[Rfam]
RNA sequence: UUGAGACAGGUGUAACCCAGCUGAAACAGGGUUUUCACCCUUCCUUUCUUCUGGUUUCCAUCCUCUCGCCGGAAGGUC
Numbered sequence: 001u002u003g004a005g006a007c008a009g010g011u012g013u014a015a016c017c018c019a020g021c022u023g024a025a026a027c028a029g030g031g032u033u034u035u036c037a038c039c040c041u042u043c044c045u046u047u048c049u050u051c052u053g054g055u056u057u058c059c060a061u062c063c064u065c066u067c068g069c070c071g072g073a074a075g076g077u078c
Stems, first nucleotide, its partner, number of pairs: 004066003009059002017054004023048004028041005
This 78-nucleotide RNA from Pospiviroid apicimpeditum belongs to the Rfam family "Pospiviroid RY motif stem loop". Rfam's curators write: This family consists of several Pospiviroid sequences which are related to the potato spindle tuber viroid (PSTVd) RY motif stem-loop. For this family Rfam cites "Characterization of the RNA motif responsible for the specific interaction of potato spindle tuber viroid RNA (PSTVd) and the tomato protein Virp1" (Gozmanova et al., Nucleic Acids Res, 2003). Lineage of the source: Viruses > Pospiviroidae > Pospiviroid > Pospiviroid apicimpeditum > Tomato apical stunt viroid.